[Rfam]
RNA: PreQ1 (pre queuosine) riboswitch aptamer
RNA sequence: UCGAGCGUGGUUCGAAAACCUCCCACGGUAAAAAACUAAGGAGAG
Numbered sequence: 001u002c003g004a005g006c007g008u009g010g011u012u013c014g015a016a017a018a019c020c021u022c023c024c025a026c027g028g029u030a031a032a033a034a035a036c037u038a039a040g041g042a043g044a045g
Stems, first nucleotide, its partner, number of pairs: 006027005016037001
Dot-bracket structure: .....(((((.....[......))))).........]........